The record is a 72-nucleotide RNA from Cognatiyoonia sediminum, which matches "Singlet oxygen resistance RNA X" in Rfam. A reference for the family is Peng et al. (2016), "Regulation of a polyamine transporter by the conserved 3' UTR-derived sRNA SorX confers resistance to singlet oxygen and organic hydroperoxides in Rhodobacter sphaeroides", RNA Biol. Gene Ontology term of the family: response to photooxidative stress. About the family: SorX (RSs2461)like SorY is a singlet oxygen induced sRNA that counteracts oxidative stress by targeting mRNA for a transporter in Rhodobacter.
[Rfam]
RNA sequence: ACCCCUCUGGUGGCGGGGUCCCGAGCCACCACCUCCCUGUUGGACUUGCCCGGACACUGUCCGGGCAUUUUU
Numbered sequence: 001a002c003c004c005c006u007c008u009g010g011u012g013g014c015g016g017g018g019u020c021c022c023g024a025g026c027c028a029c030c031a032c033c034u035c036c037c038u039g040u041u042g043g044a045c046u047u048g049c050c051c052g053g054a055c056a057c058u059g060u061c062c063g064g065g066c067a068u069u070u071u072u
Base pairs, nucleotide, nucleotide: 008031009030010029011028012027013026014025048066049065050064051063052062053061054060055059